The family of this 82-nucleotide sequence from Drosophila willistoni is "mir-11 microRNA precursor family". Taxonomically the source falls in Sophophora (Eukaryota, Eumetazoa, Ephydroidea, Drosophilini). A reference for the family is Chen et al. (2010), "Next-generation small RNA sequencing for microRNAs profiling in the honey bee Apis mellifera", Insect Mol Biol. Rfam 15.1 lists 138 matches to the family in 136 species. Pairs were carried over by alignment from the consensus structure, which was predicted with RNAalifold. It is one of the family's seed sequences.
RNA sequence: UCUUGUCAAGAUCUCUCUCUGUGACCUGCGUGAGAUUUAUCAUAUAUGAAAACCGCAUCACAGUCUGAGUUCUUGCUGAGCG
Numbered sequence: 001u002c003u004u005g006u007c008a009a010g011a012u013c014u015c016u017c018u019c020u021g022u023g024a025c026c027u028g029c030g031u032g033a034g035a036u037u038u039a040u041c042a043u044a045u046a047u048g049a050a051a052a053c054c055g056c057a058u059c060a061c062a063g064u065c066u067g068a069g070u071u072c073u074u075g076c077u078g079a080g081c082g
Stems, first nucleotide, its partner, number of pairs: 002080003007075005013069003019063006028056003